[Rfam]
RNA sequence: UUAGGUAGUGUGGUAUUGAUGGGUUCAAAAGAUCUGUUAGCCACAGAGAAACCACUAUCUAUGCGAAAACAAAUUUCAAGUUUAGGAAAAAUUUAAAAUUCAAAAGCGUUUCUCACGUUGGCAUGAAAGGUGCUUACAUAGUAAUGGGUUGUCCAUUUCACAUUUAACCCGAAAGGUUACUUGUAUUUUCAUGAAAGGAUUAUGUUUGGUAGGCAUACUAGCAUAGUUUGAGUAUUGGGAGAGUAAUUCCAACGUCUAAGAGUGGUUAGCUAUACUGACCAGCACUGAUCACUACUAUAUAAAGUAUAGUGGAUAAUGAGGGAAAAAUAAUCCUCUCAAGGUGGUCAUUUAAACGUGUAAUCUCAGCGU
Numbered sequence: 001u002u003a004g005g006u007a008g009u010g011u012g013g014u015a016u017u018g019a020u021g022g023g024u025u026c027a028a029a030a031g032a033u034c035u036g037u038u039a040g041c042c043a044c045a046g047a048g049a050a051a052c053c054a055c056u057a058u059c060u061a062u063g064c065g066a067a068a069a070c071a072a073a074u075u076u077c078a079a080g081u082u083u084a085g086g087a088a089a090a091a092u093u094u095a096a097a098a099u100u101c102a103a104a105a106g107c108g109u110u111u112c113u114c115a116c117g118u119u120g121g122c123a124u125g126a127a128a129g130g131u132g133c134u135u136a137c138a139u140a141g142u143a144a145u146g147g148g149u150u151g152u153c154c155a156u157u158u159c160a161c162a163u164u165u166a167a168c169c170c171g172a173a174a175g176g177u178u179a180c181u182u183g184u185a186u187u188u189u190c191a192u193g194a195a196a197g198g199a200u201u202a203u204g205u206u207u208g209g210u211a212g213g214c215a216u217a218c219u220a221g222c223a224u225a226g227u228u229u230g231a232g233u234a235u236u237g238g239g240a241g242a243g244u245a246a247u248u249c250c251a252a253c254g255u256c257u258a259a260g261a262g263u264g265g266u267u268a269g270c271u272a273u274a275c276u277g278a279c280c281a282g283c284a285c286u287g288a289u290c291a292c293u294a295c296u297a298u299a300u301a302a303a304g305u306a307u308a309g310u311g312g313a314u315a316a317u318g319a320g321g322g323a324a325a326a327a328u329a330a331u332c333c334u335c336u337c338a339a340g341g342u343g344g345u346c347a348u349u350u351a352a353a354c355g356u357g358u359a360a361u362c363u364c365a366g367c368g369u
Base pairs, nucleotide, nucleotide: 002061003060004059005058006057007056008055009054010044011043012042013041014040017039018038019037020036021035022034023033024032025031046114047113048112049111050110051109052108100172101171115255116254117253118252119251120250121249123247124246130285131284132283133282134281141159143157144156145155146154160184161183162182166178167177168176169175187240188239189238190237191236200226201225202224203223206221207220209218210217264280265279266278267277268276269275287346288345289344290343291342292341293311294310295309296308297307298306299305312362313361314360318335319334320333321332322331354368355367356366
Giant, ornate, lake- and Lactobacillales-derived (GOLLD) RNA: a 369-nucleotide RNA sequence from Acinetobacter phage AM24. The family's RNA type in Rfam is non-coding RNA gene. On this family, see Weinberg et al., Nature 2009: "Exceptional structured noncoding RNAs revealed by bacterial metagenome analysis". The family's consensus secondary structure is taken from published work.